[Rfam]
RNA sequence: CCCGCUGUCACCUCCGAGUGGGGGGCCAGUCGAAUGAAGUGACGCUGGUUCGAUUCGCACUCACUGAUUCCGUUCACGAUCGUCUCCUUAGUGACAUGGUGGCCGGUUCGACCACUUCCCUUACGGGAUGUGCUAAAAUCGAUAAUGUCUGAAGCAAUGCCAAAGGUCGGUAACGAAGCAUGGCACUUCGGCACUGUCGUGGGCACUAGGGACAGGGCAGGUCUAGGAAUUUGUGGG
Numbered sequence: 001c002c003c004g005c006u007g008u009c010a011c012c013u014c015c016g017a018g019u020g021g022g023g024g025g026c027c028a029g030u031c032g033a034a035u036g037a038a039g040u041g042a043c044g045c046u047g048g049u050u051c052g053a054u055u056c057g058c059a060c061u062c063a064c065u066g067a068u069u070c071c072g073u074u075c076a077c078g079a080u081c082g083u084c085u086c087c088u089u090a091g092u093g094a095c096a097u098g099g100u101g102g103c104c105g106g107u108u109c110g111a112c113c114a115c116u117u118c119c120c121u122u123a124c125g126g127g128a129u130g131u132g133c134u135a136a137a138a139u140c141g142a143u144a145a146u147g148u149c150u151g152a153a154g155c156a157a158u159g160c161c162a163a164a165g166g167u168c169g170g171u172a173a174c175g176a177a178g179c180a181u182g183g184c185a186c187u188u189c190g191g192c193a194c195u196g197u198c199g200u201g202g203g204c205a206c207u208a209g210g211g212a213c214a215g216g217g218c219a220g221g222u223c224u225a226g227g228a229a230u231u232u233g234u235g236g237g
Stems, first nucleotide, its partner, number of pairs: 011023004060237002064233001066231005080221002082218004086211002089208005095201008104141005111134001113132003117128004143147001149191006158185005167176003

A member of the RNA family "Protozoan signal recognition particle RNA" from Chlorella sorokiniana, 237 nucleotides long. Gene Ontology terms of the family: signal recognition particle, endoplasmic reticulum targeting and SRP-dependent cotranslational protein targeting to membrane, signal sequence recognition. For this family Rfam cites "Towards the structure of the mammalian signal recognition particle" (Wild et al., Curr Opin Struct Biol, 2002). It scores 68 bits against the family's covariance model. The source organism's lineage runs through Eukaryota, Chlorophyta, core chlorophytes, Chlorellaceae and Chlorella.